This 58-nucleotide RNA from Alloalcanivorax dieselolei belongs to the Rfam family "Guanidine-II riboswitch aptamer (mini-ykkC)". The family's consensus secondary structure is taken from published work. The source organism's lineage runs through Bacteria, Pseudomonadati, Pseudomonadota, Alloalcanivorax and Alloalcanivorax dieselolei. Its family is annotated with regulation of gene expression in the Gene Ontology. The family has 72 seed sequences and 1,589 matches in Rfam 15.1.
RNA sequence: CCCCAAGGACGACCUCGGGGCGCGGCGUUGAGCGCCGCCUGCUCCGGGGACGACCCCG
Numbered sequence: 001c002c003c004c005a006a007g008g009a010c011g012a013c014c015u016c017g018g019g020g021c022g023c024g025g026c027g028u029u030g031a032g033c034g035c036c037g038c039c040u041g042c043u044c045c046g047g048g049g050a051c052g053a054c055c056c057c058g
Stems, first nucleotide, its partner, number of pairs: 001020004006015003045058005